About this RNA
This 358-nucleotide part of an RNA from Methanocaldococcus vulcanius belongs to the Rfam family "Archaeal small subunit ribosomal RNA". The family has 86 seed sequences and 709 matches in Rfam 15.1. The literature on the family includes a 2002 paper in BMC Bioinformatics by Cannone et al., "The comparative RNA web (CRW) site: an online database of comparative sequence and structure information for ribosomal, intron, and other RNAs".

RNA sequence: GGCCUAAAGCGUCCGUAGCCGGCCCAGUAAGUCUCUGCUUAAAUCCUGCGGCUCAACCGCAGGGCUGGCAGAGAUACUGCUGGGCUUGGGACCGGGAGAGGCCGGGGGUACCCCAGGGGUAGCGGUGAAAUGCGUUGAUCCCUGGGGGACCACCUGUGGCGAAGGCGCCCGGCUGGAACGGGUCCGACGGUGAGGGACGAAGGCCAGGGGAGCAAACCGGAUUAGAUACCCGGGUAGUCCUGGCUGUAAACUCUGCGGACUAGGUGUCGCGUCGGCUUCGGGCCGACGCGGUGCCGAAGGGAAGCCGUUAAGUCCGCCGCCUGGGGAGUACGGUCGCAAGACUGAAACUUAAAGGAAU
Numbered sequence: 001g002g003c004c005u006a007a008a009g010c011g012u013c014c015g016u017a018g019c020c021g022g023c024c025c026a027g028u029a030a031g032u033c034u035c036u037g038c039u040u041a042a043a044u045c046c047u048g049c050g051g052c053u054c055a056a057c058c059g060c061a062g063g064g065c066u067g068g069c070a071g072a073g074a075u076a077c078u079g080c081u082g083g084g085c086u087u088g089g090g091a092c093c094g095g096g097a098g099a100g101g102c103c104g105g106g107g108g109u110a111c112c113c114c115a116g117g118g119g120u121a122g123c124g125g126u127g128a129a130a131u132g133c134g135u136u137g138a139u140c141c142c143u144g145g146g147g148g149a150c151c152a153c154c155u156g157u158g159g160c161g162a163a164g165g166c167g168c169c170c171g172g173c174u175g176g177a178a179c180g181g182g183u184c185c186g187a188c189g190g191u192g193a194g195g196g197a198c199g200a201a202g203g204c205c206a207g208g209g210g211a212g213c214a215a216a217c218c219g220g221a222u223u224a225g226a227u228a229c230c231c232g233g234g235u236a237g238u239c240c241u242g243g244c245u246g247u248a249a250a251c252u253c254u255g256c257g258g259a260c261u262a263g264g265u266g267u268c269g270c271g272u273c274g275g276c277u278u279c280g281g282g283c284c285g286a287c288g289c290g291g292u293g294c295c296g297a298a299g300g301g302a303a304g305c306c307g308u309u310a311a312g313u314c315c316g317c318c319g320c321c322u323g324g325g326g327a328g329u330a331c332g333g334u335c336g337c338a339a340g341a342c343u344g345a346a347a348c349u350u351a352a353a354g355g356a357a358u
Stems, first nucleotide, its partner, number of pairs: 001321003009318001011198004016192001018191003022085007030078002032074008045063007089185003092181003100174007107151002111147008122133003159166002203244006212238002217233004255317006263295014299306002323350003332343004

The family is grouped with related families in Rfam's "SSU clan". The base pairs follow the family's consensus structure, which is taken from published work.